Notes
A member of the RNA family "skipping-rope RNA" from Streptococcus suis, 78 nucleotides long. The family's consensus secondary structure is taken from published work. It is annotated as a small RNA. Taxonomically the source falls in Streptococcus suis (Bacteria, Bacillati, Streptococcaceae, Streptococcus).

RNA sequence: UGAUAACGAGGUCAGAAAGGCUCCUGACGCACUCGAGAGAGUACCUGAGAUGUUGGAUACGCCGCCCAACCGCUAUCA
Numbered sequence: 001u002g003a004u005a006a007c008g009a010g011g012u013c014a015g016a017a018a019g020g021c022u023c024c025u026g027a028c029g030c031a032c033u034c035g036a037g038a039g040a041g042u043a044c045c046u047g048a049g050a051u052g053u054u055g056g057a058u059a060c061g062c063c064g065c066c067c068a069a070c071c072g073c074u075a076u077c078a
Base pairs, nucleotide, nucleotide: 001078002077003076004075005074007072008071011028012027013026014025015024019063020062021061030047031042032041033040034039052070053069054068055067056066